[Rfam]
RNA sequence: GCUGGCGAUGACGACACACUUGCCCUCACUGAGGACUGCCUUCGCUGACGAGAGCAGCUCUCUACGCUCACUGCAACUGAGCCAGA
Numbered sequence: 001g002c003u004g005g006c007g008a009u010g011a012c013g014a015c016a017c018a019c020u021u022g023c024c025c026u027c028a029c030u031g032a033g034g035a036c037u038g039c040c041u042u043c044g045c046u047g048a049c050g051a052g053a054g055c056a057g058c059u060c061u062c063u064a065c066g067c068u069c070a071c072u073g074c075a076a077c078u079g080a081g082c083c084a085g086a
Base pairs, nucleotide, nucleotide: 002085003084004083005082006081
RNA: Small nucleolar RNA SNORD103/SNORD85
Organism: Halcyon senegalensis